RNA: FMN riboswitch aptamer (RFN element)
RNA sequence: GGUCGUCUUCACGGGCAGGGUGUAAUUCCCGACCGGUGGUAAUAGUCCACGAACUAAAUGGAUUUUUUCGUUUAGCCGAACUGGUGUAAUUCCAGUACCGACAGUUAGAGUCUGGAGUAAAGAAGAUAGGG
Number, nucleotide and partner (000 for none) at each position: 001g000002g000003u129004c000005g127006u126007c125008u124009u123010c122011a000012c000013g000014g000015g000016c000017a000018g030019g029020g028021u000022g000023u000024a000025a000026u000027u000028c020029c019030c018031g000032a111033c110034c100035g099036g050037u049038g048039g047040u000041a000042a000043u000044a000045g098046u097047c039048c038049a037050c036051g000052a000053a000054c075055u074056a000057a000058a000059u000060g000061g000062a000063u000064u000065u000066u000067u000068u000069c000070g000071u000072u000073u000074a055075g054076c000077c000078g000079a000080a096081c095082u094083g093084g092085u000086g000087u000088a000089a000090u000091u000092c084093c083094a082095g081096u080097a046098c045099c035100g034101a000102c114103a113104g112105u000106u000107a000108g000109a000110g033111u032112c104113u103114g102115g000116a000117g000118u000119a000120a000121a000122g010123a009124a008125g007126a006127u005128a000129g003130g000131g000